The record is a 77-nucleotide RNA sequence from Kryptolebias marmoratus, which matches "mir-23 microRNA precursor family" in Rfam.

[Rfam]
RNA sequence: AGCUGGAGGGGUUCCUGGCAGAGUGAUUUUAGUUGUGAUGUCAUGUAAAUCACAUUGCCAGGGAUUUCCAACCAGCU
Dot-bracket structure: ((.(((..(((((((((((((.(((((((.................))))))).)))))))))))..))..))).))
Numbered sequence: 001a002g003c004u005g006g007a008g009g010g011g012u013u014c015c016u017g018g019c020a021g022a023g024u025g026a027u028u029u030u031a032g033u034u035g036u037g038a039u040g041u042c043a044u045g046u047a048a049a050u051c052a053c054a055u056u057g058c059c060a061g062g063g064a065u066u067u068c069c070a071a072c073c074a075g076c077u
Stems, first nucleotide, its partner, number of pairs: 001077002004074003009069002011065011023053007

A reference for the family is Chen et al. (2005), "The developmental miRNA profiles of zebrafish as determined by small RNA cloning", Genes Dev.